The family of this 189-nucleotide RNA sequence from Paenibacillus validus is "c-di-AMP riboswitch aptamer (ydaO/yuaA leader)". A search with the family's covariance model found it, with a score of 94 bits.

[Rfam]
RNA sequence: GCGUCUUUAUCGCUGAGUCCUUUAGGGGAUCGGGGGAACCAUUCGGUAAUGGGCAAGGUUGUUACACCGCUUAUUACUUUGGGGUGAAUUUCUAAAGCAAUCCCGUACAUUUGUACAUUUGCUUAGAAUAGGGCGACUCUUACGUCCGAAUCCGUCAGCUAACCUCGUAAGCGUAAAAAGAGAGGCGAU
Numbered sequence: 001g002c003g004u005c006u007u008u009a010u011c012g013c014u015g016a017g018u019c020c021u022u023u024a025g026g027g028g029a030u031c032g033g034g035g036g037a038a039c040c041a042u043u044c045g046g047u048a049a050u051g052g053g054c055a056a057g058g059u060u061g062u063u064a065c066a067c068c069g070c071u072u073a074u075u076a077c078u079u080u081g082g083g084g085u086g087a088a089u090u091u092c093u094a095a096a097g098c099a100a101u102c103c104c105g106u107a108c109a110u111u112u113g114u115a116c117a118u119u120u121g122c123u124u125a126g127a128a129u130a131g132g133g134c135g136a137c138u139c140u141u142a143c144g145u146c147c148g149a150a151u152c153c154g155u156c157a158g159c160u161a162a163c164c165u166c167g168u169a170a171g172c173g174u175a176a177a178a179a180g181a182g183a184g185g186c187g188a189u
Stems, first nucleotide, its partner, number of pairs: 011173004018029003031167005040081002082153003090128006131147004